SAM riboswitch aptamer (S box leader): a 109-nucleotide sequence from Salinibacillus xinjiangensis.

[Rfam]
RNA sequence: CUCUUAUCAUGAGAGGUGGAGGGACUGGCCCGAUGAAACCCGGCAACCAUCAAACAAUCGUUUGACCUGGUGCCAAUUCCUGCAAAGCGAAUGCUUUGACAGAUGAGAG
Numbered sequence: 001c002u003c004u005u006a007u008c009a010u011g012a013g014a015g016g017u018g019g020a021g022g023g024a025c026u027g028g029c030c031c032g033a034u035g036a037a038a039c040c041c042g043g044c045a046a047c048c049a050u051c052a053a054a055c056a057a058u059c060g061u062u063u064g065a066c067c068u069g070g071u072g073c074c075a076a077u078u079c080c081u082g083c084a085a086a087g088c089g090a091a092u093g094c095u096u097u098g099a100c101a102g103a104u105g106a107g108a109g
Stems, first nucleotide, its partner, number of pairs: 001109008013041001015040003021031003025082001027080002042074004047070002050065003078101001083098006
Lineage of the source: Bacteria > Bacilli > Caryophanales > Bacillaceae > Salinibacillus.